[Rfam]
RNA sequence: GGAAGUUUGAGGGGAGCCGUUCCUAGUACGAGAGGACCGGGACGGACCGACCGCUGGUAUGCCUGUUGGGGAGCAACCCCAUGGCAGGGAAGCCAAGUCGGGAAGGGAUAAACGCUGAAAGCAUCUAAGCGUGAAGCCCCCCCUAAGAUGAGACCUCCCGCGCGUAAGCGUUAAGACCCCUUGAAGACUACGAGGUUGAUAGGACGCAGGUGUAAGUGCAGCAAUGUACUAAGCCAGGCGUUACUAAUAGGUCGAGGG
Numbered sequence: 001g002g003a004a005g006u007u008u009g010a011g012g013g014g015a016g017c018c019g020u021u022c023c024u025a026g027u028a029c030g031a032g033a034g035g036a037c038c039g040g041g042a043c044g045g046a047c048c049g050a051c052c053g054c055u056g057g058u059a060u061g062c063c064u065g066u067u068g069g070g071g072a073g074c075a076a077c078c079c080c081a082u083g084g085c086a087g088g089g090a091a092g093c094c095a096a097g098u099c100g101g102g103a104a105g106g107g108a109u110a111a112a113c114g115c116u117g118a119a120a121g122c123a124u125c126u127a128a129g130c131g132u133g134a135a136g137c138c139c140c141c142c143c144u145a146a147g148a149u150g151a152g153a154c155c156u157c158c159c160g161c162g163c164g165u166a167a168g169c170g171u172u173a174a175g176a177c178c179c180c181u182u183g184a185a186g187a188c189u190a191c192g193a194g195g196u197u198g199a200u201a202g203g204a205c206g207c208a209g210g211u212g213u214a215a216g217u218g219c220a221g222c223a224a225u226g227u228a229c230u231a232a233g234c235c236a237g238g239c240g241u242u243a244c245u246a247a248u249a250g251g252u253c254g255a256g257g258g
Base pairs, nucleotide, nucleotide: 001158002157003156005154006153007152008151011144012143013142014141017045018044019043020042021041022040023039047101048100049099050098051097055095056094057093062088063087064086065085066084067081068080069079070078071077105139106138107137112132113131114130115129116128161170162169163168172255175253176252177251178250179195180194181193182192183191200246201245202244203242204241205240206239207238209235210234216229217228218227219226220225
About this RNA:
The family of this 258-nucleotide part of an RNA from Johnsonella ignava is "Bacterial large subunit ribosomal RNA". The source organism's lineage runs through Bacteria, Bacillati, Clostridia, Lachnospiraceae and Johnsonella ignava.